[Rfam]
RNA sequence: CCCACAUCAGAUUUCCUGGUGUAACGAAUUUUUCGAUGACUUCUUGCAGAUGCAAGUUUGAUCCCGACUCCUCAAGCGUCGGGAUUU
Numbered sequence: 001c002c003c004a005c006a007u008c009a010g011a012u013u014u015c016c017u018g019g020u021g022u023a024a025c026g027a028a029u030u031u032u033u034c035g036a037u038g039a040c041u042u043c044u045u046g047c048a049g050a051u052g053c054a055a056g057u058u059u060g061a062u063c064c065c066g067a068c069u070c071c072u073c074a075a076g077c078g079u080c081g082g083g084a085u086u087u
Stems, first nucleotide, its partner, number of pairs: 004022007026059003029055002031052001033050002037046002061085007070076001
Rfam assigns this 87-nucleotide RNA from Enterobacteriaceae bacterium strain FGI 57 to the family "DsrA RNA".
Rfam links the family to the GO terms positive regulation of translation and mRNA transcription.
For this family Rfam cites "A small RNA acts as an antisilencer of the H-NS-silenced rcsA gene of Escherichia coli" (Sledjeski and Gottesman, Proc Natl Acad Sci USA, 1995).
About the family: DsrA RNA regulates both transcription, by overcoming transcriptional silencing by the nucleoid-associated H-NS protein, and translation, by promoting efficient translation of the stress sigma factor, RpoS. These two activities of DsrA can be separated by mutation: the first of three stem-loops of the 85 nucleotide RNA is necessary for RpoS translation but not for anti-H-NS action, while the second stem-loop is essential for antisilencing and less critical for RpoS translation. The third stem-loop, which behaves as a transcription terminator, can be substituted by the trp transcription terminator without loss of either DsrA function.
The base pairs follow the family's consensus structure, which is taken from published work.